The record is a 69-nucleotide RNA from Monodelphis domestica, which matches "mir-17 microRNA precursor family" in Rfam. Lineage of the source: Eukaryota > Eumetazoa > Chordata > Metatheria > Monodelphis. Its family is annotated with RISC complex and miRNA-mediated post-transcriptional gene silencing in the Gene Ontology. From the family's description: This family represents the microRNA (miRNA) precursor mir-17, family, which includes mir-20, mir-91, and mir-103. miRNAs are transcribed as ~70nt precursors (modelled here) and subsequently processed by the Dicer enzyme to give a ~22nt product. In this case the mature sequence comes from the 3' arm of the precursor. The extents of the hairpin precursors are not generally known and are estimated based on hairpin prediction. The base pairs follow the family's consensus structure, which was predicted with RNAalifold.
RNA sequence: UUGUGUAAAAGUGCUUAUAGUGCAGGUAGGUCGUGUAACUACUGCCCUGUGAGCACUUCCAACAUGACC
Numbered sequence: 001u002u003g004u005g006u007a008a009a010a011g012u013g014c015u016u017a018u019a020g021u022g023c024a025g026g027u028a029g030g031u032c033g034u035g036u037a038a039c040u041a042c043u044g045c046c047c048u049g050u051g052a053g054c055a056c057u058u059c060c061a062a063c064a065u066g067a068c069c
Stems, first nucleotide, its partner, number of pairs: 001067003005063002009058012022045002025043005
Dot-bracket structure: (((.((..((((((((((((.((.(((((.........))))))).))))))))))))...)).)))..